[Rfam]
RNA sequence: CUCAAUUGGUGCAAACCAAAUCACCUUAAUUUGUAAUUUAAGAUGAAAAGUAUUUUCCCAUUGGUAAUAAAAUAGUUAUCCAUUAAGCGGGAAAAAUCCUAUU
Numbered sequence: 001c002u003c004a005a006u007u008g009g010u011g012c013a014a015a016c017c018a019a020a021u022c023a024c025c026u027u028a029a030u031u032u033g034u035a036a037u038u039u040a041a042g043a044u045g046a047a048a049a050g051u052a053u054u055u056u057c058c059c060a061u062u063g064g065u066a067a068u069a070a071a072a073u074a075g076u077u078a079u080c081c082a083u084u085a086a087g088c089g090g091g092a093a094a095a096a097u098c099c100u101a102u103u
Base pairs, nucleotide, nucleotide: 006020007019009017056092057091058090059089060083061082063080064079065078066077067076068075
Notes: Shown here is a 103-nucleotide RNA sequence, a member of the family "Plastid-rps12 3UTR RNA". Plastid rpl20 is a non-coding RNA (ncRNA) recognised in plastids. It was found in the three prime untranslated region (3UTR) of rps12 gene, its 3UTR location sugest a role in transcript maduration. For this family Rfam cites "Retrograde signaling in plants: A critical review focusing on the GUN pathway and beyond" (Richter et al., Plant Commun, 2023).